[Rfam]
PhotoRC-II RNA: a 94-nucleotide RNA from Anaposvirus socalone.
It scores 70 bits against the family's covariance model.
It is annotated as a cis-regulatory element.
RNA sequence: UAACGCUUCGUAACACCCCUCAAACCAAGACCUAUAGGGUGUAUAACAACGUCUUUAAUACCUCUGCCUAGGGCGCAGAGGAAUAGUAACUCCA
Dot-bracket structure: .............(((((........[[[[[.....))))).........]]]]].....(((((((.......))))))).............